[Rfam]
RNA: mir-9/mir-79 microRNA precursor family
RNA sequence: CCAUUUUUGCCUUUGGUAACCUAGCUUUAUGAUAUUUCUGCCCCAAUCAUACAGCUAGAUAACCAAAGACAAAACCGG
Number, nucleotide and partner (000 for none) at each position: 001c078002c077003a000004u000005u074006u000007u072008u071009g070010c000011c068012u067013u066014u065015g064016g063017u062018a000019a060020c000021c058022u057023a056024g055025c054026u053027u000028u051029a050030u049031g048032a047033u046034a000035u000036u000037u000038c000039u000040g000041c000042c000043c000044c000045a000046a033047u032048c031049a030050u029051a028052c000053a026054g025055c024056u023057a022058g021059a000060u019061a000062a017063c016064c015065a014066a013067a012068g011069a000070c009071a008072a007073a000074a005075c000076c000077g002078g001